[Rfam]
RNA sequence: UGGUCAUUACCAAGGCUUUUAGAAUGUGGUUUCUGAUUGCUGUGGACAUGACCACAAAAAAUUACCCCAGCAGGUUUAUAUUUGCUACCUUAGUAGCAUUUAACCUUUUGGGAACAUUU
Numbered sequence: 001u002g003g004u005c006a007u008u009a010c011c012a013a014g015g016c017u018u019u020u021a022g023a024a025u026g027u028g029g030u031u032u033c034u035g036a037u038u039g040c041u042g043u044g045g046a047c048a049u050g051a052c053c054a055c056a057a058a059a060a061a062u063u064a065c066c067c068c069a070g071c072a073g074g075u076u077u078a079u080a081u082u083u084g085c086u087a088c089c090u091u092a093g094u095a096g097c098a099u100u101u102a103a104c105c106u107u108u109u110g111g112g113a114a115c116a117u118u119u
Base pairs, nucleotide, nucleotide: 003052004051005050006049007048010045011044012043026040027039028038029037066112067111068110069109073105074104075103076102083098084097085096

The record is a 119-nucleotide RNA sequence from Vombatus ursinus, which matches "Small nucleolar RNA SNORA32" in Rfam. The organism belongs to Vombatus, within Eukaryota. Rfam's curators write: ACA32 is a member of the H/ACA class of snoRNA that guide the sites of modification of uridines to pseudouridines. Rfam 15.1 lists 615 matches to the family in 234 species. It scores 113 bits against the family's covariance model. The family's consensus secondary structure was predicted with RNAfold.